[Rfam]
Shown here is a 77-nucleotide RNA sequence from Diabrotica balteata, a member of the family "mir-67 microRNA precursor family". The base pairs follow the family's consensus structure, which was predicted with RNAalifold.
RNA sequence: AUCUUUGGUCACUCACUCAACCUGGGUGUGAUGUGAACUCUAUCCAUCACAACCUCCUUGAGUGAGCGAUUAAGGGA
Number, nucleotide and partner (000 for none) at each position: 001a000002u000003c000004u000005u000006u000007g000008g000009u068010c000011a000012c066013u065014c064015a063016c062017u061018c060019a059020a058021c000022c000023u000024g054025g053026g000027u051028g050029u049030g048031a047032u046033g045034u000035g000036a000037a000038c000039u000040c000041u000042a000043u000044c000045c033046a032047u031048c030049a029050c028051a027052a000053c025054c024055u000056c000057c000058u020059u019060g018061a017062g016063u015064g014065a013066g012067c000068g009069a000070u000071u000072a000073a000074g000075g000076g000077a000
Description
A search with the family's covariance model found it, with a score of 70 bits. Its family is annotated with RISC complex and miRNA-mediated post-transcriptional gene silencing in the Gene Ontology.